[Rfam]
RNA sequence: UAGAACAAUGUAGAUAAGAAAAGUCAGCAAAAUAAAUCUGUAACUUUGGGAAAAGAAUUGGCUUUAAGAGUUGGGCACAUUAAGUCUUGAAAGAAAGCCUCUGGAGCAGAAGAGCACUAGUCAGAAAACUGGUGAGCAUCUUCCAGCAUUGGAAUACAUAUUCUCUUGACAGACUUUGGCUGUCUGGUGCAUGAUUAAUGACCAACUUAGAACUGGUACAGACAAGAGAAAUCUGACUAUCUAAUUAAAAUAUAGCAUUGUGAUGGUCAGAAAGUGGUGUUGAUGCAAUGUGAUUUCUGUCCAGUGCUCUGAAUAUCAAAGUGAAGAAAUUUAAUCAAGCACAGAUAAAUGGCAGAAGUAACUAUGACUCUCUUAAGAUAGCUAAAUACCUUGUCAUCUAAUUAGUAACACACAUAAAUGAAUUAAUGAGAUUCCCACUGUCUCUAUCUACUAUCUAGUGAAACUACAGCCAAGGGAACAGGCUUGACAAA
Numbered sequence: 001u002a003g004a005a006c007a008a009u010g011u012a013g014a015u016a017a018g019a020a021a022a023g024u025c026a027g028c029a030a031a032a033u034a035a036a037u038c039u040g041u042a043a044c045u046u047u048g049g050g051a052a053a054a055g056a057a058u059u060g061g062c063u064u065u066a067a068g069a070g071u072u073g074g075g076c077a078c079a080u081u082a083a084g085u086c087u088u089g090a091a092a093g094a095a096a097g098c099c100u101c102u103g104g105a106g107c108a109g110a111a112g113a114g115c116a117c118u119a120g121u122c123a124g125a126a127a128a129c130u131g132g133u134g135a136g137c138a139u140c141u142u143c144c145a146g147c148a149u150u151g152g153a154a155u156a157c158a159u160a161u162u163c164u165c166u167u168g169a170c171a172g173a174c175u176u177u178g179g180c181u182g183u184c185u186g187g188u189g190c191a192u193g194a195u196u197a198a199u200g201a202c203c204a205a206c207u208u209a210g211a212a213c214u215g216g217u218a219c220a221g222a223c224a225a226g227a228g229a230a231a232u233c234u235g236a237c238u239a240u241c242u243a244a245u246u247a248a249a250a251u252a253u254a255g256c257a258u259u260g261u262g263a264u265g266g267u268c269a270g271a272a273a274g275u276g277g278u279g280u281u282g283a284u285g286c287a288a289u290g291u292g293a294u295u296u297c298u299g300u301c302c303a304g305u306g307c308u309c310u311g312a313a314u315a316u317c318a319a320a321g322u323g324a325a326g327a328a329a330u331u332u333a334a335u336c337a338a339g340c341a342c343a344g345a346u347a348a349a350u351g352g353c354a355g356a357a358g359u360a361a362c363u364a365u366g367a368c369u370c371u372c373u374u375a376a377g378a379u380a381g382c383u384a385a386a387u388a389c390c391u392u393g394u395c396a397u398c399u400a401a402u403u404a405g406u407a408a409c410a411c412a413c414a415u416a417a418a419u420g421a422a423u424u425a426a427u428g429a430g431a432u433u434c435c436c437a438c439u440g441u442c443u444c445u446a447u448c449u450a451c452u453a454u455c456u457a458g459u460g461a462a463a464c465u466a467c468a469g470c471c472a473a474g475g476g477a478a479c480a481g482g483c484u485u486g487a488c489a490a491a
Base pairs, nucleotide, nucleotide: 001457002456003455004454010451011450012449013448014447015446016445018443020441035059036058037057039055044049060214061213063211064210065209066208067207068206070202071201072200073199075192078189079188080187081186082185084170085169086168089165090164100153101152102151103150104149106147107146109144111142112141114139117136118135120133121132122131123130124129215219228435230433231432232431233430234428235427238252239251240250255291256290257289258288259287260286261285262284266278267277268276269275295422296421297420299353300352301351304350305349306346308344311342314341316339322333323332324331325330355371357369358368359367373377393409394408396406397405471486472485473484474483
RNA: Eukaryotic large subunit ribosomal RNA, nucleotides 2478 to 2968